[Rfam]
RNA sequence: ACAAAAGCUAUGAAGGGUAAUAGUAAAUAAGAUUUCACUUUAAGAGAGUGGAUGGUUGGUGUGAAUCCAUAGUGAAACUUAUUGAAUCCGACCUUGAGCUGCAUAGGGGUAACAACCUAUGCCGGAGUUAUCCGUUAUUAUAAAGAGGCUAUUAUUAAUAAUAGCAAAAUAAGGUGGUACCACGUGGAUUAUUAUGUCUUCGUCCUUGGA
Number, nucleotide and partner (000 for none) at each position: 001a000002c000003a000004a000005a000006a000007g099008c098009u000010a000011u000012g000013a000014a000015g094016g093017g092018u091019a000020a000021u000022a000023g000024u000025a000026a083027a082028u081029a080030a079031g078032a000033u000034u000035u000036c000037a073038c072039u071040u000041u000042a000043a000044g000045a000046g000047a000048g070049u069050g068051g067052a066053u065054g000055g000056u000057u000058g000059g000060u000061g000062u000063g000064a000065a053066u052067c051068c050069a049070u048071a039072g038073u037074g000075a000076a000077a000078c031079u030080u029081a028082u027083u026084g000085a000086a000087u000088c000089c000090g000091a018092c017093c016094u015095u000096g000097a000098g008099c007100u000101g000102c121103a120104u119105a118106g117107g116108g000109g000110u000111a000112a000113c000114a000115a000116c107117c106118u105119a104120u103121g102122c000123c134124g133125g132126a000127g000128u000129u000130a000131u000132c125133c124134g123135u000136u000137a000138u000139u000140a000141u000142a000143a000144a000145g000146a000147g000148g165149c164150u163151a162152u161153u160154a159155u000156u000157a000158a000159u154160a153161a152162u151163a150164g149165c148166a000167a000168a000169a000170u000171a207172a206173g205174g204175u000176g000177g000178u000179a000180c000181c000182a203183c202184g201185u000186g199187g198188a197189u196190u000191a000192u000193u000194a000195u000196g189197u188198c187199u186200u000201c184202g183203u182204c174205c173206u172207u171208g000209g000210a000
The family of this 210-nucleotide RNA from Clostridium thermopalmarium is "T-box leader". The family's RNA type in Rfam is cis-regulatory leader.